[Rfam]
This 331-nucleotide RNA sequence from Enterococcus faecium belongs to the Rfam family "Bacterial RNase P class B". The organism belongs to Enterococcus, within Bacteria. Gene Ontology terms of the family: ribonuclease P activity, dimeric ribonuclease P complex and tRNA processing. Ribonuclease P (RNase P) is a ubiquitous endoribonuclease, found in archaea, bacteria and eukarya as well as chloroplasts and mitochondria. Its best characterised activity is the generation of mature 5'-ends of tRNAs by cleaving the 5'-leader elements of precursor-tRNAs. Cellular RNase Ps are ribonucleoproteins. Rfam classes the family as a ribozyme. The sequence is in the family's curated seed alignment.
RNA sequence: GAGGAAAGUCCGGGCUCGCACAGGCUGUGAUGCCUGUAGUGUUCGUGCUUAGCGAAACAAUAAGCUAAGGUGCUCUAUUAGAGUAACGGCAGGAAAACAAGCUAAGGUUUUUAACUAUGCUUAAGUAUCCUUGAAAGUGCCACAGUGACGAAGCGGAUAGGGAAACUUAUUCGGUGGAACGCGGUAAACCCCUCGAGCGAGCAACCCAAACAAUGGUAGGGGCGCUUUUUGUUGGGAAUUAAGAACGAGACAAAAAGGCAGGUUAACUGCAGAUAGAUGGUUACCACAUUGCUUUUUCUCCCUGGAAAGUAGUGUACAGAACACGGCUUAU
Numbered sequence: 001g002a003g004g005a006a007a008g009u010c011c012g013g014g015c016u017c018g019c020a021c022a023g024g025c026u027g028u029g030a031u032g033c034c035u036g037u038a039g040u041g042u043u044c045g046u047g048c049u050u051a052g053c054g055a056a057a058c059a060a061u062a063a064g065c066u067a068a069g070g071u072g073c074u075c076u077a078u079u080a081g082a083g084u085a086a087c088g089g090c091a092g093g094a095a096a097a098c099a100a101g102c103u104a105a106g107g108u109u110u111u112u113a114a115c116u117a118u119g120c121u122u123a124a125g126u127a128u129c130c131u132u133g134a135a136a137g138u139g140c141c142a143c144a145g146u147g148a149c150g151a152a153g154c155g156g157a158u159a160g161g162g163a164a165a166c167u168u169a170u171u172c173g174g175u176g177g178a179a180c181g182c183g184g185u186a187a188a189c190c191c192c193u194c195g196a197g198c199g200a201g202c203a204a205c206c207c208a209a210a211c212a213a214u215g216g217u218a219g220g221g222g223c224g225c226u227u228u229u230u231g232u233u234g235g236g237a238a239u240u241a242a243g244a245a246c247g248a249g250a251c252a253a254a255a256a257g258g259c260a261g262g263u264u265a266a267c268u269g270c271a272g273a274u275a276g277a278u279g280g281u282u283a284c285c286a287c288a289u290u291g292c293u294u295u296u297u298c299u300c301c302c303u304g305g306a307a308a309g310u311a312g313u314g315u316a317c318a319g320a321a322c323a324c325g326g327c328u329u330a331u
Base pairs, nucleotide, nucleotide: 006329007328008327010326011325012324014322015201016200017199018198019197020037021036022035023034024033025032043196044195045194047192048069049068050067051066052065053064070087071085072084073083074082075081076080088191089190091131092130093129094128099122100121101120102119106116107115108114137189138188139185140184141183154173155172156171157170158169159168160167161166205221206220207219225257226256227255228254229253230252231251258270259269260268261267287314288313289312290311291310292309293308294307295306296305297304